[Rfam]
RNA sequence: CGUGAAAUAAAUCACAUAACAAACAUACACCCCUUUGUUUGAACGUGAACAUUUCUCCCAUCCCCUUUGUGAAAAGAGGCGUCAUUAUUCUUGUAGAAGGAUAAUGACGCCUCUUUUAUUU
Numbered sequence: 001c002g003u004g005a006a007a008u009a010a011a012u013c014a015c016a017u018a019a020c021a022a023a024c025a026u027a028c029a030c031c032c033c034u035u036u037g038u039u040u041g042a043a044c045g046u047g048a049a050c051a052u053u054u055c056u057c058c059c060a061u062c063c064c065c066u067u068u069g070u071g072a073a074a075a076g077a078g079g080c081g082u083c084a085u086u087a088u089u090c091u092u093g094u095a096g097a098a099g100g101a102u103a104a105u106g107a108c109g110c111c112u113c114u115u116u117u118a119u120u121u
Stems, first nucleotide, its partner, number of pairs: 002057001004055005013047003017043001020041006072117021

The record is a 121-nucleotide RNA from Lysinibacillus halotolerans, which matches "Listeria sRNA rli61" in Rfam. The organism belongs to Lysinibacillus, within Bacteria. For this family Rfam cites "The Listeria transcriptional landscape from saprophytism to virulence" (Toledo-Arana et al., Nature, 2009).